[Rfam]
RNA sequence: CGAUCGGGAGGCUUGUGGUGGGACAUGAGCCGGGAAUUGACCGUAACCCAUCGUCUCGAAAGGACGCGGUGCAGGAGCCCGACUGCAUGCGCG
Numbered sequence: 001c002g003a004u005c006g007g008g009a010g011g012c013u014u015g016u017g018g019u020g021g022g023a024c025a026u027g028a029g030c031c032g033g034g035a036a037u038u039g040a041c042c043g044u045a046a047c048c049c050a051u052c053g054u055c056u057c058g059a060a061a062g063g064a065c066g067c068g069g070u071g072c073a074g075g076a077g078c079c080c081g082a083c084u085g086c087a088u089g090c091g092c093g
Base pairs, nucleotide, nucleotide: 001043002042004040005039010031011030012029013028014027015026016025017024065093066092067091068090070087071086072085073084074083
Background:
This 93-nucleotide RNA sequence from Roseovarius aestuarii belongs to the Rfam family "Rhodo-rpoB RNA". A search with the family's covariance model found it, with a score of 77 bits. The family's RNA type in Rfam is cis-regulatory element. Pairs were carried over by alignment from the consensus structure, which is taken from published work.